[Rfam]
RNA sequence: ACGCGGAAAGGAGGUGGUCCGAAUAAUGGUUUCUCAUAGUCGGGCUAGCGAGGUGGUUGUCCGCUGACGUCGCGGACACCUUGUCUCGUCUCGUGACGUUGGCGAAUACGAGGCAACCACCGGGGCCCCUGGCAGCCGGAGGGCGGGAUCCGAUCCCGACCAUGGUCCAUCCGGCCCGCUUGCACGGCAGGCGGAGUGAUGCCCGGGGCCCUUCUUUA
Numbered sequence: 001a002c003g004c005g006g007a008a009a010g011g012a013g014g015u016g017g018u019c020c021g022a023a024u025a026a027u028g029g030u031u032u033c034u035c036a037u038a039g040u041c042g043g044g045c046u047a048g049c050g051a052g053g054u055g056g057u058u059g060u061c062c063g064c065u066g067a068c069g070u071c072g073c074g075g076a077c078a079c080c081u082u083g084u085c086u087c088g089u090c091u092c093g094u095g096a097c098g099u100u101g102g103c104g105a106a107u108a109c110g111a112g113g114c115a116a117c118c119a120c121c122g123g124g125g126c127c128c129c130u131g132g133c134a135g136c137c138g139g140a141g142g143g144c145g146g147g148a149u150c151c152g153a154u155c156c157c158g159a160c161c162a163u164g165g166u167c168c169a170u171c172c173g174g175c176c177c178g179c180u181u182g183c184a185c186g187g188c189a190g191g192c193g194g195a196g197u198g199a200u201g202c203c204c205g206g207g208g209c210c211c212u213u214c215u216u217u218a
Stems, first nucleotide, its partner, number of pairs: 013061006062104007070096004074091003122212008131203004137193001
Rfam assigns this 218-nucleotide sequence from Nonomuraea polychroma to the family "Actinobacteria sRNA Ms_IGR-5". The pairing is the family consensus, mapped onto this sequence. The match comes from Rfam's covariance-model search (64 bits).